[Rfam]
RNA sequence: GGUGCAUUGUAGUUGCAUUGCACGUCGUGUCCGGGCCGUGCAAUGUUUCCACAGUGCAUCCCAG
Numbered sequence: 001g002g003u004g005c006a007u008u009g010u011a012g013u014u015g016c017a018u019u020g021c022a023c024g025u026c027g028u029g030u031c032c033g034g035g036c037c038g039u040g041c042a043a044u045g046u047u048u049c050c051a052c053a054g055u056g057c058a059u060c061c062c063a064g
Stems, first nucleotide, its partner, number of pairs: 002060001003058008012049001015046001017044007
RNA: mir-33 microRNA precursor family